The family of this 85-nucleotide sequence from Clunio marinus is "mir-263 microRNA precursor family".
Taxonomically the source falls in Clunio (Eukaryota, Mandibulata, Dicondylia, Panorpida).
Clan: mir-182 clan.
Its family is annotated with RISC complex and miRNA-mediated post-transcriptional gene silencing in the Gene Ontology.
The family has 52 seed sequences and 368 matches in Rfam 15.1.
Pairs were carried over by alignment from the consensus structure, which was predicted with RNAalifold.
On this family, see Li et al., BMC Genomics 2009: "Direct sequencing and expression analysis of a large number of miRNAs in Aedes aegypti and a multi-species survey of novel mosquito miRNAs".
[Rfam]
RNA sequence: GAUUGACGAAUCUUGGCACUUGGAGAAUUCACAGUUGUUACUUAAUAAAAUUCUGUGGAUCUUUUGGUGCCAUUAUUUGUUAAUU
Numbered sequence: 001g002a003u004u005g006a007c008g009a010a011u012c013u014u015g016g017c018a019c020u021u022g023g024a025g026a027a028u029u030c031a032c033a034g035u036u037g038u039u040a041c042u043u044a045a046u047a048a049a050a051u052u053c054u055g056u057g058g059a060u061c062u063u064u065u066g067g068u069g070c071c072a073u074u075a076u077u078u079g080u081u082a083a084u085u
Stems, first nucleotide, its partner, number of pairs: 003083008014072005020066001022064001023062001025061002029058006